[Rfam]
RNA: Bacterial small signal recognition particle RNA
RNA sequence: CACUGGGUCCCUGGCGGCGGAAGCCGUCGAACCGUGUCAGGUCCGGAAGGAAGCAGCACUAAGAUGUCUCUUCCGGGUGCCCAGGAUCACCUGGUCGGU
Numbered sequence: 001c002a003c004u005g006g007g008u009c010c011c012u013g014g015c016g017g018c019g020g021a022a023g024c025c026g027u028c029g030a031a032c033c034g035u036g037u038c039a040g041g042u043c044c045g046g047a048a049g050g051a052a053g054c055a056g057c058a059c060u061a062a063g064a065u066g067u068c069u070c071u072u073c074c075g076g077g078u079g080c081c082c083a084g085g086a087u088c089a090c091c092u093g094g095u096c097g098g099u
Base pairs, nucleotide, nucleotide: 004093005092006091007090008089010085011084012083013082014081015077018075019074020073021072022071023068025066026065027064028063034059035058036057037056042051043050044049